This 83-nucleotide RNA sequence from Chinchilla lanigera belongs to the Rfam family "small Cajal body-specific RNA 18". Rfam describes the family as follows. scaRNAs are a specific class of small nuclear RNAs which localise to the Cajal bodies and guide the modification of RNA polymerase II transcribed spliceosomal RNAs U1, U2, U4, U5 and U12.

RNA sequence: CGGCCACUGAUGACCAGACCGCUGUGCAGUCUGAGUCCUGGGAACCAGGUGAUGGAGUACAUUGUAACAACAGACUGAGGCCG
Number, nucleotide and partner (000 for none) at each position: 001c000002g082003g081004c080005c079006a000007c000008u000009g000010a000011u000012g000013a000014c000015c000016a000017g000018a000019c000020c000021g000022c000023u000024g000025u000026g000027c000028a000029g000030u000031c000032u000033g000034a000035g000036u000037c000038c048039u047040g046041g045042g000043a000044a000045c041046c040047a039048g038049g000050u000051g000052a000053u000054g000055g000056a000057g000058u000059a000060c000061a000062u000063u000064g000065u000066a000067a000068c000069a000070a000071c000072a000073g000074a000075c000076u000077g000078a000079g005080g004081c003082c002083g000
The family's RNA type in Rfam is small Cajal body RNA. The match comes from Rfam's covariance-model search (88 bits).